The record is a 416-nucleotide RNA sequence from Rattus norvegicus, which matches "Small Cajal body-specific RNA 2" in Rfam.
RNA sequence: CCUCGCGAGUGGGAGCGCGGCUGGGGUGGUGGGUAGUUUUGGGUUGUGUUGUGUGCUGCGUGUGGUGCAUGUGGGCCGAGUGCGAGUACGGAUGUGCGAGUGUGUGCGCGCGGGUCUGCAGCAUGGAAGGCGAGUGUGUGUCCUCCCCACGCCCCUCCCCUCGCCUACACCUUGAUCUUAUUUGAUCGGGUCGUGACCCCCGCCCCGCCGGGCCGCCCCGAAAUGAAAAGCAGCCCUCCUGCGAAGCCCCCUGGGUGGGGCGCUGUGCAGUGAGGCCCUCUGGGCGGUGGCGACGCCGCGGUUCCCGAGGUUCCCGGAUCGGUCCUGCGGGCCCGGCGCUCAGAAGUGAUGAAUUGAUCAGAUAGACGAGGCCGGGUCCGUCCCAGCCGCUGAUUACCGAGGCGAUUCUGAUCUGA
Numbered sequence: 001c002c003u004c005g006c007g008a009g010u011g012g013g014a015g016c017g018c019g020g021c022u023g024g025g026g027u028g029g030u031g032g033g034u035a036g037u038u039u040u041g042g043g044u045u046g047u048g049u050u051g052u053g054u055g056c057u058g059c060g061u062g063u064g065g066u067g068c069a070u071g072u073g074g075g076c077c078g079a080g081u082g083c084g085a086g087u088a089c090g091g092a093u094g095u096g097c098g099a100g101u102g103u104g105u106g107c108g109c110g111c112g113g114g115u116c117u118g119c120a121g122c123a124u125g126g127a128a129g130g131c132g133a134g135u136g137u138g139u140g141u142c143c144u145c146c147c148c149a150c151g152c153c154c155c156u157c158c159c160c161u162c163g164c165c166u167a168c169a170c171c172u173u174g175a176u177c178u179u180a181u182u183u184g185a186u187c188g189g190g191u192c193g194u195g196a197c198c199c200c201c202g203c204c205c206c207g208c209c210g211g212g213c214c215g216c217c218c219c220g221a222a223a224u225g226a227a228a229a230g231c232a233g234c235c236c237u238c239c240u241g242c243g244a245a246g247c248c249c250c251c252u253g254g255g256u257g258g259g260g261c262g263c264u265g266u267g268c269a270g271u272g273a274g275g276c277c278c279u280c281u282g283g284g285c286g287g288u289g290g291c292g293a294c295g296c297c298g299c300g301g302u303u304c305c306c307g308a309g310g311u312u313c314c315c316g317g318a319u320c321g322g323u324c325c326u327g328c329g330g331g332c333c334c335g336g337c338g339c340u341c342a343g344a345a346g347u348g349a350u351g352a353a354u355u356g357a358u359c360a361g362a363u364a365g366a367c368g369a370g371g372c373c374g375g376g377u378c379c380g381u382c383c384c385a386g387c388c389g390c391u392g393a394u395u396a397c398c399g400a401g402g403c404g405a406u407u408c409u410g411a412u413c414u415g416a
Stems, first nucleotide, its partner, number of pairs: 053152003057073006090105001092103004108141005114135002117132002181229003186221004192215002195213001198212003202208002250310003256307005262302003267299002270296003275291003278287002319336004323331003341415004351408006370388003375383002
Rfam classes the family as a small Cajal body RNA. Rfam links the family to the GO terms RNA processing and nucleolus. The family has 20 seed sequences and 612 matches in Rfam 15.1.